[Rfam]
Shown here is an 87-nucleotide RNA from Thauera aromatica, a member of the family "c-di-GMP-I riboswitch aptamer". It scores 80 bits against the family's covariance model. NCBI's taxonomy places the organism under Bacteria, Pseudomonadota, Rhodocyclales, Thauera, Thauera aromatica.
RNA sequence: UCCUGAAAAGGGUAAACCCGUCGAAAGGCGGGGACGCAAAGUCACCGGUUUAAAAGGCUUCGGCCUCAUGACAGCGGGACUGCCAGG
Numbered sequence: 001u002c003c004u005g006a007a008a009a010g011g012g013u014a015a016a017c018c019c020g021u022c023g024a025a026a027g028g029c030g031g032g033g034a035c036g037c038a039a040a041g042u043c044a045c046c047g048g049u050u051u052a053a054a055a056g057g058c059u060u061c062g063g064c065c066u067c068a069u070g071a072c073a074g075c076g077g078g079a080c081u082g083c084c085a086g087g
Stems, first nucleotide, its partner, number of pairs: 012037002017032006040081004045077003048072003055066004